Small nucleolar RNA SNORA47: a 133-nucleotide sequence from Microcaecilia unicolor. The literature on the family includes a 2001 paper in EMBO J by Huttenhofer et al., "RNomics: an experimental approach that identifies 201 candidates for novel, small, non-messenger RNAs in mouse". Its family is annotated with nucleolus and RNA processing in the Gene Ontology. NCBI's taxonomy places the organism under Eukaryota, Opisthokonta, Gnathostomata, Tetrapoda, Microcaecilia. The family has 20 seed sequences and 733 matches in Rfam 15.1.
[Rfam]
RNA sequence: CGGAGGAUUGAGAAGGUAAUGCAGUUGUACUCUGUACUGCUCUUGACCGGUUAUGUCCUCCAACAUUAAGAAAUGGAAAAUCAGUCUGGGUUCUUCCUUUUUAAUGAGGAAACACUACUGCAUUUUGCAUUUA
Numbered sequence: 001c002g003g004a005g006g007a008u009u010g011a012g013a014a015g016g017u018a019a020u021g022c023a024g025u026u027g028u029a030c031u032c033u034g035u036a037c038u039g040c041u042c043u044u045g046a047c048c049g050g051u052u053a054u055g056u057c058c059u060c061c062a063a064c065a066u067u068a069a070g071a072a073a074u075g076g077a078a079a080a081u082c083a084g085u086c087u088g089g090g091u092u093c094u095u096c097c098u099u100u101u102u103a104a105u106g107a108g109g110a111a112a113c114a115c116u117a118c119u120g121c122a123u124u125u126u127g128c129a130u131u132u133a
Base pairs, nucleotide, nucleotide: 002061003060004059005058006057015048016047017046021040022039023038024037025036076125077124078123082120084118085117092112094110095109096108098107099106